This 150-nucleotide RNA sequence from Carnegiea gigantea belongs to the Rfam family "small nucleolar RNA snoR135".
Gene Ontology terms of the family: nucleolus and RNA processing.
NCBI's taxonomy places the organism under Eukaryota, Tracheophyta, Cactineae, Cactoideae, Carnegiea.
The family has 6 seed sequences and 837 matches in Rfam 15.1.
By type it is an H/ACA-box small nucleolar RNA.
RNA sequence: AAGGCAGGGAUUGUGUGUAUCGGUAUGGUGCGAAUUCAGUGCGCCAAUUUCCGAAAGAGUUCCCUGCCAUAUCAAUCAUAAGGGGAAGAUGGGCAGUUGUGUCUCAUCUUUUUUCUGUUGAUUUCCUCAACAAUCAUCUUCCCUACAUCC
Numbered sequence: 001a002a003g004g005c006a007g008g009g010a011u012u013g014u015g016u017g018u019a020u021c022g023g024u025a026u027g028g029u030g031c032g033a034a035u036u037c038a039g040u041g042c043g044c045c046a047a048u049u050u051c052c053g054a055a056a057g058a059g060u061u062c063c064c065u066g067c068c069a070u071a072u073c074a075a076u077c078a079u080a081a082g083g084g085g086a087a088g089a090u091g092g093g094c095a096g097u098u099g100u101g102u103c104u105c106a107u108c109u110u111u112u113u114u115c116u117g118u119u120g121a122u123u124u125c126c127u128c129a130a131c132a133a134u135c136a137u138c139u140u141c142c143c144u145a146c147a148u149c150c
Stems, first nucleotide, its partner, number of pairs: 004067007015044006082144011096131004